Bacterial RNase P class A: a 399-nucleotide RNA from Celeribacter halophilus. It scores 307 bits against the family's covariance model. NCBI's taxonomy places the organism under Bacteria, Pseudomonadota, Rhodobacterales, Roseobacteraceae, Celeribacter. The family's consensus secondary structure is taken from published work.
[Rfam]
RNA sequence: GCGGAUGGCUGGAUAAUCGCCGCUUCGAGCAAUCGGAGGGGAGGAAAGUCCGGACUCCCUUGAGCAACGGUGCCGGGUAACGCCCGGCGGGGGCAACCCCAGGGAUAGCGCCACAGAGAACAGACUGCCCUCUCAUACGGGGGUGAUGGUGAAACGGUGGGGUAAGAGCCCACCGCGCGACUGGCAACAGGAGCGGCACGGCAAGCCCCACCGGGAGCAAUGCCAAAUAGGGGUUCUACGCGAGGACUGUGUGCGCAAGCAUACCGCUCGCAAGGUCGCUCAAGCCUGAGAACCCGGGUUGGCAGCUUGAGCCGUCUGGUAACAGGCGGCCUAGAGGAAUGGUUAUCCAAGGCGGGUUUCCCGCCGGGACAGAAUCCGGCUUACAGGCCAUCCGCGUCA
Numbered sequence: 001g002c003g004g005a006u007g008g009c010u011g012g013a014u015a016a017u018c019g020c021c022g023c024u025u026c027g028a029g030c031a032a033u034c035g036g037a038g039g040g041g042a043g044g045a046a047a048g049u050c051c052g053g054a055c056u057c058c059c060u061u062g063a064g065c066a067a068c069g070g071u072g073c074c075g076g077g078u079a080a081c082g083c084c085c086g087g088c089g090g091g092g093g094c095a096a097c098c099c100c101a102g103g104g105a106u107a108g109c110g111c112c113a114c115a116g117a118g119a120a121c122a123g124a125c126u127g128c129c130c131u132c133u134c135a136u137a138c139g140g141g142g143g144u145g146a147u148g149g150u151g152a153a154a155c156g157g158u159g160g161g162g163u164a165a166g167a168g169c170c171c172a173c174c175g176c177g178c179g180a181c182u183g184g185c186a187a188c189a190g191g192a193g194c195g196g197c198a199c200g201g202c203a204a205g206c207c208c209c210a211c212c213g214g215g216a217g218c219a220a221u222g223c224c225a226a227a228u229a230g231g232g233g234u235u236c237u238a239c240g241c242g243a244g245g246a247c248u249g250u251g252u253g254c255g256c257a258a259g260c261a262u263a264c265c266g267c268u269c270g271c272a273a274g275g276u277c278g279c280u281c282a283a284g285c286c287u288g289a290g291a292a293c294c295c296g297g298g299u300u301g302g303c304a305g306c307u308u309g310a311g312c313c314g315u316c317u318g319g320u321a322a323c324a325g326g327c328g329g330c331c332u333a334g335a336g337g338a339a340u341g342g343u344u345a346u347c348c349a350a351g352g353c354g355g356g357u358u359u360c361c362c363g364c365c366g367g368g369a370c371a372g373a374a375u376c377c378g379g380c381u382u383a384c385a386g387g388c389c390a391u392c393c394g395c396g397u398c399a
Stems, first nucleotide, its partner, number of pairs: 001395010011384001012347007020041002023038006046382003050379005055217004064280001068213005073087005088102001089100004103208002108206002110202003125148001127144006156174006175197001176195003181190003221304004231295006273287004311330008